[Rfam]
Nucleotides: 094
Stems, first nucleotide, its partner, number of pairs: 001093004
Number, partner (000 for none) and nucleotide at each position: 001093g002092a003091c004090c005000g006000g007000u008000g009000a010000u011000g012000c013000a014000a015000g016000a017000g018000g019000a020000u021000u022000g023000u024000c025000c026000g027000u028000a029000c030000c031000a032000u033000c034000u035000g036000a037000g038000a039000u040000c041000c042000g043000g044000g045000u046000a047000a048000g049000c050000a051000c052000c053000c054000u055000u056000c057000u058000c059000u060000a061000u062000g063000a064000u065000g066000c067000a068000u069000c070000a071000u072000u073000a074000u075000g076000c077000c078000u079000c080000u081000a082000g083000c084000u085000u086000c087000u088000g089000a090004g091003g092002u093001u094000g

Shown here is a 94-nucleotide RNA sequence from Dioscorea zingiberensis, a member of the family "small nucleolar RNA snoR117". The match comes from Rfam's covariance-model search (59 bits). By type it is a C/D-box small nucleolar RNA.